RNA sequence: AGAGUUGGUAGCUAGGGUUCCGGCCUUGUCUGAAGGCGCUGGUCCGAGAGCUGCCCCCCGAAGGGAGAAAUCCUUCGGACGCACGGCGGGACAAAAGCCCGGGAGGC
Numbered sequence: 001a002g003a004g005u006u007g008g009u010a011g012c013u014a015g016g017g018u019u020c021c022g023g024c025c026u027u028g029u030c031u032g033a034a035g036g037c038g039c040u041g042g043u044c045c046g047a048g049a050g051c052u053g054c055c056c057c058c059c060g061a062a063g064g065g066a067g068a069a070a071u072c073c074u075u076c077g078g079a080c081g082c083a084c085g086g087c088g089g090g091a092c093a094a095a096a097g098c099c100c101g102g103g104a105g106g107c
Stems, first nucleotide, its partner, number of pairs: 007055006015045002020042002022039001023037005058078006082102001084105001088100003
RNA: Guanidine-I riboswitch aptamer
Organism: Rhodopseudomonas palustris